RNA sequence: ACCGCGGGCUCGUCACCCUCGGACGUCCCGACGAGGGCCUGCUCGCCGAAGAAGUCGCCGUUGGCGAGCGUCCCGUGGACGGCGUCGGCGUCGAACUGGCCCGCGCCGAUCUGCUGGAGCUUGCCGUGCGCGACGAGGAUGACGCGGUCGACGGGACGGCCCCGUUCGACGAUGACGUCGCCGGGCUCGUACUCCUGCUGGGUGAAGCGGCCCGCGAUGGCGUCGAGCGUGAGGUCGUCGUCGAAGCCGCGCAGCGGCGCCAGCUCGCCCAGCUCGCGCGGGAUGACGCGGACGUCGGCGCCGGUCGUCACGAAGGUAACCCGCCCGUCGCCGAGGGUGUAGGUGAGGCGCCGGUUGACCCGGUACGUACCGCCGGCCGCCUGGACCCAGGGAAGCAGCUUCAGCAGCCACCGCGAGGUGAUGCCCUGCAUCUGGGGGACGGACUUGGUCGUGGUCGCCAGAUUCCGUGCCGCUGCGGUACCGAGGCUCAACUGCUGCUGUUCUU
Numbered sequence: 001a002c003c004g005c006g007g008g009c010u011c012g013u014c015a016c017c018c019u020c021g022g023a024c025g026u027c028c029c030g031a032c033g034a035g036g037g038c039c040u041g042c043u044c045g046c047c048g049a050a051g052a053a054g055u056c057g058c059c060g061u062u063g064g065c066g067a068g069c070g071u072c073c074c075g076u077g078g079a080c081g082g083c084g085u086c087g088g089c090g091u092c093g094a095a096c097u098g099g100c101c102c103g104c105g106c107c108g109a110u111c112u113g114c115u116g117g118a119g120c121u122u123g124c125c126g127u128g129c130g131c132g133a134c135g136a137g138g139a140u141g142a143c144g145c146g147g148u149c150g151a152c153g154g155g156a157c158g159g160c161c162c163c164g165u166u167c168g169a170c171g172a173u174g175a176c177g178u179c180g181c182c183g184g185g186c187u188c189g190u191a192c193u194c195c196u197g198c199u200g201g202g203u204g205a206a207g208c209g210g211c212c213c214g215c216g217a218u219g220g221c222g223u224c225g226a227g228c229g230u231g232a233g234g235u236c237g238u239c240g241u242c243g244a245a246g247c248c249g250c251g252c253a254g255c256g257g258c259g260c261c262a263g264c265u266c267g268c269c270c271a272g273c274u275c276g277c278g279c280g281g282g283a284u285g286a287c288g289c290g291g292a293c294g295u296c297g298g299c300g301c302c303g304g305u306c307g308u309c310a311c312g313a314a315g316g317u318a319a320c321c322c323g324c325c326c327g328u329c330g331c332c333g334a335g336g337g338u339g340u341a342g343g344u345g346a347g348g349c350g351c352c353g354g355u356u357g358a359c360c361c362g363g364u365a366c367g368u369a370c371c372g373c374c375g376g377c378c379g380c381c382u383g384g385a386c387c388c389a390g391g392g393a394a395g396c397a398g399c400u401u402c403a404g405c406a407g408c409c410a411c412c413g414c415g416a417g418g419u420g421a422u423g424c425c426c427u428g429c430a431u432c433u434g435g436g437g438g439a440c441g442g443a444c445u446u447g448g449u450c451g452u453g454g455u456c457g458c459c460a461g462a463u464u465c466c467g468u469g470c471c472g473c474u475g476c477g478g479u480a481c482c483g484a485g486g487c488u489c490a491a492c493u494g495c496u497g498c499u500g501u502u503c504u505u
Stems, first nucleotide, its partner, number of pairs: 006387002009384002012381001014379001021322002026313002033309002036306004044300006051230001055226003059222003062108004074099001077096001080093004114219001116218001119215002123211002127206001128203002131200002135196001137194001141192001147188001150186001152184001154182002160174001163171003231293001237287006248278004253274003257268003326339004349375002352372003358368002388428005394422001396420002400415001402413001404412001434473001436471002439468005445461005475503001477499003482494001484493002
Overview:
This 505-nucleotide sequence from Actinomadura soli belongs to the Rfam family "Saccharopolyspora sRNA 350". The literature on the family includes a 2013 paper in PLoS One by Liu et al., "Prediction and characterization of small non-coding RNAs related to secondary metabolites in Saccharopolyspora erythraea". NCBI's taxonomy places the organism under Bacteria, Actinomycetota, Actinomycetes, Thermomonosporaceae, Actinomadura.